[Rfam]
RNA: MIR408 microRNA precursor family
Organism: Hordeum vulgare
RNA sequence: GACUGGGGAGGGGAGAGGAGACAGGGAUGGAGCAGAGCAAGGGAUGGGGCAAGCAACAAACUAUCACCCCCUUAUCAUGAGAAGAUCGAGAGAGUUGUGAGAGACCAGGGAUCCCUGUCGUCGUUGUUGUUCCUCCCUCCCUGCACUGCCUCUUCCCUGGCUCCCCUCCCAUCCCUCUCC
Numbered sequence: 001g002a003c004u005g006g007g008g009a010g011g012g013g014a015g016a017g018g019a020g021a022c023a024g025g026g027a028u029g030g031a032g033c034a035g036a037g038c039a040a041g042g043g044a045u046g047g048g049g050c051a052a053g054c055a056a057c058a059a060a061c062u063a064u065c066a067c068c069c070c071c072u073u074a075u076c077a078u079g080a081g082a083a084g085a086u087c088g089a090g091a092g093a094g095u096u097g098u099g100a101g102a103g104a105c106c107a108g109g110g111a112u113c114c115c116u117g118u119c120g121u122c123g124u125u126g127u128u129g130u131u132c133c134u135c136c137c138u139c140c141c142u143g144c145a146c147u148g149c150c151u152c153u154u155c156c157c158u159g160g161c162u163c164c165c166c167u168c169c170c171a172u173c174c175c176u177c178u179c180c
Base pairs, nucleotide, nucleotide: 018163019162020161022159023158024157025156026155027154030151032149033148034147035146037144038143039142041140043139047135048134